A member of the RNA family "U5 spliceosomal RNA" from Channa argus, 113 nucleotides long. Rfam's curators write: U5 RNA is a component of both types of known spliceosome. The precise function of this molecule is unknown, though it is known that the 5' loop is required for splice site selection and p220 binding, and that both the 3' stem-loop and the Sm site are important for Sm protein binding and cap methylation. For this family Rfam cites "The uRNA database" (Zwieb, Nucleic Acids Res, 1997). It scores 98 bits against the family's covariance model.

[Rfam]
RNA sequence: CACUCUUGUUUCUCUUCAAAUCGUAUAAAUCUUUCGCCUUUUACUAAAGAUUUCCGUGGAGAGGAACAACAAGAGCUUUAUCCAAUUUUUUGAUGCCCUGCUCACGCGGGGCU
Numbered sequence: 001c002a003c004u005c006u007u008g009u010u011u012c013u014c015u016u017c018a019a020a021u022c023g024u025a026u027a028a029a030u031c032u033u034u035c036g037c038c039u040u041u042u043a044c045u046a047a048a049g050a051u052u053u054c055c056g057u058g059g060a061g062a063g064g065a066a067c068a069a070c071a072a073g074a075g076c077u078u079u080a081u082c083c084a085a086u087u088u089u090u091u092g093a094u095g096c097c098c099u100g101c102u103c104a105c106g107c108g109g110g111g112c113u
Base pairs, nucleotide, nucleotide: 003075004074005073006072008067009066010065011064012063013062014061015060016059017058018057027053028052029051030050031049032048033047034046093113095112096111097110098109099108100107